MIR535 microRNA precursor family: a 100-nucleotide sequence from Coptis chinensis.
Lineage of the source: Eukaryota > Embryophyta > Tracheophyta > Ranunculaceae > Coptis.
Its family is annotated with miRNA-mediated post-transcriptional gene silencing and RISC complex in the Gene Ontology.
The literature on the family includes a 2010 paper in Nucleic Acids Res by Zeng et al., "Conservation and divergence of microRNAs and their functions in Euphorbiaceous plants".
A search with the family's covariance model found it, with a score of 80 bits.
Rfam 15.1 lists 544 matches to the family in 108 species.
[Rfam]
RNA sequence: UAAUCUGGUUGACAACGAGAGAGAGCACGCGAGUCGGCGUUCAUGCAAAUAUGGAUUCAUGAGUGUUUACAUGCGUGCUCUCCCUCGUUGUCAUACGAUU
Numbered sequence: 001u002a003a004u005c006u007g008g009u010u011g012a013c014a015a016c017g018a019g020a021g022a023g024a025g026c027a028c029g030c031g032a033g034u035c036g037g038c039g040u041u042c043a044u045g046c047a048a049a050u051a052u053g054g055a056u057u058c059a060u061g062a063g064u065g066u067u068u069a070c071a072u073g074c075g076u077g078c079u080c081u082c083c084c085u086c087g088u089u090g091u092c093a094u095a096c097g098a099u100u
Stems, first nucleotide, its partner, number of pairs: 010093005016087002021082001023080001025078007033070002